A member of the RNA family "Bacterial large subunit ribosomal RNA" from Actinoalloteichus hoggarensis, 363 nucleotides of a longer RNA.
The organism belongs to Actinoalloteichus, within Bacteria.
The match comes from Rfam's covariance-model search (2756 bits).
RNA sequence: CGGGUGAACUGUGGUUAAGGAACUCGGCAAAAUGCCCCCGUAACUUCGGGAGAAGGGGGGCCGUGUGGCGUGAAGCCCUUUUCGGGCUAGCGUUGUGUGGCCGCAGAGACCAGGGAGAAGCGACUGUUUAUUAAAAACACAGGUCCGUGCGAAGUCGUAAGACGAUGUAUACGGACUGACGCCUGCCCGGUGCUGGAACGUUAAGGGGACCGCUUAGCUCUUCGGGGCGAAGGUGAGAACUUAAGCGCCAGUAAACGGCGGUGGUAACUAUAACCAUCCUAAGGUAGCGAAAUUCCUUGUCGGGUAAGUUCCGACCUGCACGAAUGGCGUAACGACUUCUCCGCUGUCUCAACCACAGGCCCG
Numbered sequence: 001c002g003g004g005u006g007a008a009c010u011g012u013g014g015u016u017a018a019g020g021a022a023c024u025c026g027g028c029a030a031a032a033u034g035c036c037c038c039c040g041u042a043a044c045u046u047c048g049g050g051a052g053a054a055g056g057g058g059g060g061c062c063g064u065g066u067g068g069c070g071u072g073a074a075g076c077c078c079u080u081u082u083c084g085g086g087c088u089a090g091c092g093u094u095g096u097g098u099g100g101c102c103g104c105a106g107a108g109a110c111c112a113g114g115g116a117g118a119a120g121c122g123a124c125u126g127u128u129u130a131u132u133a134a135a136a137a138c139a140c141a142g143g144u145c146c147g148u149g150c151g152a153a154g155u156c157g158u159a160a161g162a163c164g165a166u167g168u169a170u171a172c173g174g175a176c177u178g179a180c181g182c183c184u185g186c187c188c189g190g191u192g193c194u195g196g197a198a199c200g201u202u203a204a205g206g207g208g209a210c211c212g213c214u215u216a217g218c219u220c221u222u223c224g225g226g227g228c229g230a231a232g233g234u235g236a237g238a239a240c241u242u243a244a245g246c247g248c249c250a251g252u253a254a255a256c257g258g259c260g261g262u263g264g265u266a267a268c269u270a271u272a273a274c275c276a277u278c279c280u281a282a283g284g285u286a287g288c289g290a291a292a293u294u295c296c297u298u299g300u301c302g303g304g305u306a307a308g309u310u311c312c313g314a315c316c317u318g319c320a321c322g323a324a325u326g327g328c329g330u331a332a333c334g335a336c337u338u339c340u341c342c343g344c345u346g347u348c349u350c351a352a353c354c355a356c357a358g359g360c361c362c363g
Stems, first nucleotide, its partner, number of pairs: 001363004009358008018349003035059005044049001060101006074088005102106001114342007121334002125139003142177008150167001154163003180329004185259003190256002192252005199247003205241002211235004217228004260278006279283001289316001299315006